[Rfam]
RNA sequence: GGAGAAAACUCUGGAGAAUCUCUUAAAUGAGUGCCGACGGUGCAAGGCUUCAAGCCAAACGCUCCCAAUCAGCGGAGCGGCUUUGAAGCUGAAUCUCUCAGGCAAAAGGACAGAGACGGGUUU
Numbered sequence: 001g002g003a004g005a006a007a008a009c010u011c012u013g014g015a016g017a018a019u020c021u022c023u024u025a026a027a028u029g030a031g032u033g034c035c036g037a038c039g040g041u042g043c044a045a046g047g048c049u050u051c052a053a054g055c056c057a058a059a060c061g062c063u064c065c066c067a068a069u070c071a072g073c074g075g076a077g078c079g080g081c082u083u084u085g086a087a088g089c090u091g092a093a094u095c096u097c098u099c100a101g102g103c104a105a106a107a108g109g110a111c112a113g114a115g116a117c118g119g120g121u122u123u
Stems, first nucleotide, its partner, number of pairs: 009115005020031003033103003036099002040097001042095001046090009
The family of this 123-nucleotide RNA from Eggerthella sp. CAG:209 is "Glycine riboswitch aptamer".
A search with the family's covariance model found it, with a score of 53 bits.
Rfam describes the family as follows. This family represents the bacterial glycine riboswitch.
Its family is annotated with glycine biosynthetic process in the Gene Ontology.
The source organism's lineage runs through Bacteria, Bacillati, Actinomycetota, Eggerthellales and Eggerthella.